Rfam assigns this 136-nucleotide RNA from Methylocystis echinoides to the family "speF leader". This family is a putative regulatory RNA structure that is found upstream of the speF gene encoding ornithine decarboxylase in Agrobacterium tumefaciens and other alpha-proteobacteria. It scores 48 bits against the family's covariance model. The family's RNA type in Rfam is cis-regulatory leader. On this family, see del Val et al., RNA Biol 2012: "A survey of sRNA families in alpha-proteobacteria". Lineage of the source: Bacteria > Pseudomonadati > Hyphomicrobiales > Methylocystaceae > Methylocystis.
RNA sequence: UGUCAGCCCUCCAAAGGCUGGCUUACCAGAGAGGCUUGUCUUUCUUGCCGGGCGUGCGGAAAGGGACUUUCCCCUUCCAAUCGAUGGCUGAUCGGACUGAAUGGCAUGCGCUUGCGCGCGUGUCUUUCGUUGUCUG
Numbered sequence: 001u002g003u004c005a006g007c008c009c010u011c012c013a014a015a016g017g018c019u020g021g022c023u024u025a026c027c028a029g030a031g032a033g034g035c036u037u038g039u040c041u042u043u044c045u046u047g048c049c050g051g052g053c054g055u056g057c058g059g060a061a062a063g064g065g066a067c068u069u070u071c072c073c074c075u076u077c078c079a080a081u082c083g084a085u086g087g088c089u090g091a092u093c094g095g096a097c098u099g100a101a102u103g104g105c106a107u108g109c110g111c112u113u114g115c116g117c118g119c120g121u122g123u124c125u126u127u128c129g130u131u132g133u134c135u136g
Stems, first nucleotide, its partner, number of pairs: 002022007033049003056130003082094002102110002